RNA sequence: GGAAAAGGAACUUCUCCUAAGUGCCGACACGUCGUGUGUCGAACGGAGAAGCCACAACGUCCUGUUGA
Numbered sequence: 001g002g003a004a005a006a007g008g009a010a011c012u013u014c015u016c017c018u019a020a021g022u023g024c025c026g027a028c029a030c031g032u033c034g035u036g037u038g039u040c041g042a043a044c045g046g047a048g049a050a051g052c053c054a055c056a057a058c059g060u061c062c063u064g065u066u067g068a
Stems, first nucleotide, its partner, number of pairs: 011051007026040005055067004
Shown here is a 68-nucleotide RNA from Bacillus sp. FJAT-27916, a member of the family "Bacillaceae-1 RNA". The match comes from Rfam's covariance-model search (59 bits). The family's consensus secondary structure is taken from published work. Lineage of the source: Bacteria > Bacillati > Bacillota > Caryophanales > Bacillus.